Shown here is a 236-nucleotide RNA sequence from Coralloluteibacterium stylophorae, a member of the family "permuted transfer-messenger RNA". Rfam links the family to the GO term RNA catabolic process. It scores 51 bits against the family's covariance model.
Nucleotides: 236
Base pairs, nucleotide, nucleotide: 001154010148012146013145022136024134027131028130032067033066034065035064036063068117069116070115071114072113073112074111159178160177161176162175163174164173
Number, partner (000 for none) and nucleotide at each position: 001154g002000c003000c004000u005000g006000a007000g008000c009000c010148g011000c012146c013145g014000g015000u016000g017000c018000g019000g020000u021000g022136a023000a024134c025000g026000g027131c028130g029000g030000a031000c032067g033066g034065c035064g036063g037000u038000g039000g040000g041000c042000c043000u044000c045000c046000c047000g048000c049000a050000c051000c052000u053000u054000g055000a056000a057000u058000g059000c060000g061000c062000c063036c064035c065034g066033c067032c068117c069116g070115c071114c072113c073112c074111u075000a076000u077000a078000c079000u080000u081000g082000c083000c084000g085000c086000g087000a088000u089000c090000g091000g092000a093000u094000g095000a096000u097000c098000g099000a100000u101000g102000c103000g104000u105000u106000u107000u108000c109000c110000c111074g112073g113072g114071g115070g116069u117068g118000c119000u120000c121000u122000g123000g124000c125000u126000u127000c128000g129000a130028c131027g132000g133000g134024g135000g136022u137000c138000g139000c140000g141000a142000a143000a144000u145013c146012g147000u148010c149000u150000g151000g152000u153000g154001c155000a156000u157000g158000c159178c160177g161176a162175g163174g164173g165000g166000g167000u168000g169000a170000c171000u172000u173164u174163c175162c176161u177160c178159g179000u180000u181000a182000a183000u184000c185000c186000a187000g188000u189000c190000g191000c192000a193000a194000a195000c196000u197000c198000a199000u200000a201000g202000u203000u204000g205000c206000c207000a208000a209000c210000g211000a212000c213000g214000a215000c216000a217000a218000c219000u220000a221000c222000g223000c224000u225000c226000u227000c228000g229000c230000c231000g232000c233000u234000u235000a236000a